[Rfam]
RNA: epsC RNA
Organism: Bacillus mycoides
RNA sequence: UGGUGAUGUCUCCUUACCGCUAUCAACGGAGGCACUCGAUUAUGCUGUGGGUUGUGAAAACAACCUUAGAUGCGAGUCAUCAAGAGUGUAAUGUGAGGGAGGGUUAGAUGCCCC
Numbered sequence: 001u002g003g004u005g006a007u008g009u010c011u012c013c014u015u016a017c018c019g020c021u022a023u024c025a026a027c028g029g030a031g032g033c034a035c036u037c038g039a040u041u042a043u044g045c046u047g048u049g050g051g052u053u054g055u056g057a058a059a060a061c062a063a064c065c066u067u068a069g070a071u072g073c074g075a076g077u078c079a080u081c082a083a084g085a086g087u088g089u090a091a092u093g094u095g096a097g098g099g100a101g102g103g104u105u106a107g108a109u110g111c112c113c114c
Stems, first nucleotide, its partner, number of pairs: 001019004007034007035097004039092008049066003053062003069081004101113004